[Rfam]
A member of the RNA family "c-di-AMP riboswitch aptamer (ydaO/yuaA leader)" from Nonomuraea polychroma, 137 nucleotides long.
RNA sequence: GCCAUUACAUAGCCGAAUCCCGAGCGAUCGGGAACCGGGGACCCAUCCCUCAGGGGUGAAUCCGGCCACCUGGCCGGUAGGGCAUCCUCCAAGCCCGAACCCGUCAGCUAACCCGGUAGGCGUGAUGGAGAGGACAC
Numbered sequence: 001g002c003c004a005u006u007a008c009a010u011a012g013c014c015g016a017a018u019c020c021c022g023a024g025c026g027a028u029c030g031g032g033a034a035c036c037g038g039g040g041a042c043c044c045a046u047c048c049c050u051c052a053g054g055g056g057u058g059a060a061u062c063c064g065g066c067c068a069c070c071u072g073g074c075c076g077g078u079a080g081g082g083c084a085u086c087c088u089c090c091a092a093g094c095c096c097g098a099a100c101c102c103g104u105c106a107g108c109u110a111a112c113c114c115g116g117u118a119g120g121c122g123u124g125a126u127g128g129a130g131a132g133g134a135c136a137c
Stems, first nucleotide, its partner, number of pairs: 012121003018033006034117006044053001054102003062077004080096004
It scores 105 bits against the family's covariance model.